The family of this 179-nucleotide sequence from Providencia stuartii is "Manganese Mn2+ riboswitch aptamer (yybP-ykoY)". Gene Ontology term of the family: manganese ion binding. It scores 64 bits against the family's covariance model.

RNA sequence: AACCACGUCAUUGGGGAGUAGCCUGUUCUGGAAAUAUAUCCAGAAUGUCCGUGUCAACAUACUCGUUUGUAAUUUAAACGUGGUACGGACGCCAUCUUGGUUGGCAAGACCAUAGACACAUGAAUAAGCCUUUUGGUUGGGGGUAAUUCAUGUGUAUAUGGAUCUACCCAACCGAGGUU
Numbered sequence: 001a002a003c004c005a006c007g008u009c010a011u012u013g014g015g016g017a018g019u020a021g022c023c024u025g026u027u028c029u030g031g032a033a034a035u036a037u038a039u040c041c042a043g044a045a046u047g048u049c050c051g052u053g054u055c056a057a058c059a060u061a062c063u064c065g066u067u068u069g070u071a072a073u074u075u076a077a078a079c080g081u082g083g084u085a086c087g088g089a090c091g092c093c094a095u096c097u098u099g100g101u102u103g104g105c106a107a108g109a110c111c112a113u114a115g116a117c118a119c120a121u122g123a124a125u126a127a128g129c130c131u132u133u134u135g136g137u138u139g140g141g142g143g144u145a146a147u148u149c150a151u152g153u154g155u156a157u158a159u160g161g162a163u164c165u166a167c168c169c170a171a172c173c174g175a176g177g178u179u
Base pairs, nucleotide, nucleotide: 026045027044028043047090048089049088050087051086052085053084054083055082056081064080065079066078067077068076094178095177096176097175